[Rfam]
RNA sequence: UAGGCUGACGCCAAGAUCCCGGAUAACCAGACAGGACACGAAAAGACAAUGACCUGCUUCCUGCCUGCCCUUGCCGGUGCCAACACCAUCUAUGGCGCCG
Numbered sequence: 001u002a003g004g005c006u007g008a009c010g011c012c013a014a015g016a017u018c019c020c021g022g023a024u025a026a027c028c029a030g031a032c033a034g035g036a037c038a039c040g041a042a043a044a045g046a047c048a049a050u051g052a053c054c055u056g057c058u059u060c061c062u063g064c065c066u067g068c069c070c071u072u073g074c075c076g077g078u079g080c081c082a083a084c085a086c087c088a089u090c091u092a093u094g095g096c097g098c099c100g
Stems, first nucleotide, its partner, number of pairs: 003012001033062003077098001079096002
This 100-nucleotide RNA belongs to the Rfam family "Pyrrolysine insertion sequence mttB". Rfam's curators put it in the seed alignment. By type it is a cis-regulatory element. Rfam 15.1 lists 416 matches to the family in 326 species.